[Rfam]
RNA sequence: GGUCGAUGAUGGUACUUCAAGACGGGAAUGACGAGAGUUUGAUUAUAUAUGAAUGGCUGAGACC
Numbered sequence: 001g002g003u004c005g006a007u008g009a010u011g012g013u014a015c016u017u018c019a020a021g022a023c024g025g026g027a028a029u030g031a032c033g034a035g036a037g038u039u040u041g042a043u044u045a046u047a048u049a050u051g052a053a054u055g056g057c058u059g060a061g062a063c064c
Stems, first nucleotide, its partner, number of pairs: 001064004

Rfam assigns this 64-nucleotide sequence from Parascaris univalens to the family "Small nucleolar RNA sn668". Pairs were carried over by alignment from the consensus structure, which was predicted with WAR. Taxonomically the source falls in Parascaris (Eukaryota, Opisthokonta, Metazoa, Ascaridoidea). The literature on the family includes a 2002 paper in Biochem Biophys Res Commun by Higa et al., "Location of 2(')-O-methyl nucleotides in 26S rRNA and methylation guide snoRNAs in Caenorhabditis elegans". Gene Ontology terms of the family: nucleolus and RNA processing.